Shown here is a 125-nucleotide RNA sequence from Agrobacterium fabrum, a member of the family "Alphaproteobacterial ar14". Gene Ontology term of the family: biological process involved in symbiotic interaction. By type it is a small RNA. For this family Rfam cites "A survey of sRNA families in alpha-proteobacteria" (del Val et al., RNA Biol, 2012).

RNA sequence: UAAUGCGGGUGAUCCUACUCCUCCUCCCAAAGGAUUGCCCCGGGGACAGCGGUUUUCCUCCUCCCAUAUCGCUGUUCAUCUUUUCAGAAAGCCUGCCGCACCUCCUCCCGCGGCAGGCUUUUUUG
Numbered sequence: 001u002a003a004u005g006c007g008g009g010u011g012a013u014c015c016u017a018c019u020c021c022u023c024c025u026c027c028c029a030a031a032g033g034a035u036u037g038c039c040c041c042g043g044g045g046a047c048a049g050c051g052g053u054u055u056u057c058c059u060c061c062u063c064c065c066a067u068a069u070c071g072c073u074g075u076u077c078a079u080c081u082u083u084u085c086a087g088a089a090a091g092c093c094u095g096c097c098g099c100a101c102c103u104c105c106u107c108c109c110g111c112g113g114c115a116g117g118c119u120u121u122u123u124u125g
Base pairs, nucleotide, nucleotide: 007040008039009038011036012035013034014033015032016031044077045076046075047074048073049072050071051070052069053068089120090119091118092117093116094115095114096113097112098111099110
Rfam's curators put it in the seed alignment. Lineage of the source: Bacteria > Pseudomonadota > Alphaproteobacteria > Agrobacterium tumefaciens complex > Agrobacterium fabrum. Pairs were carried over by alignment from the consensus structure.